[Rfam]
RNA sequence: GGUCGCGUGGCCGAGCGGUUAGGCAGAGGUCUGCAAAACCUCGUACAGCGGUUCAAAUCCGCUCGCGACCU
Numbered sequence: 001g002g003u004c005g006c007g008u009g010g011c012c013g014a015g016c017g018g019u020u021a022g023g024c025a026g027a028g029g030u031c032u033g034c035a036a037a038a039c040c041u042c043g044u045a046c047a048g049c050g051g052u053u054c055a056a057a058u059c060c061g062c063u064c065g066c067g068a069c070c071u
Stems, first nucleotide, its partner, number of pairs: 001070007010024003026042005047063005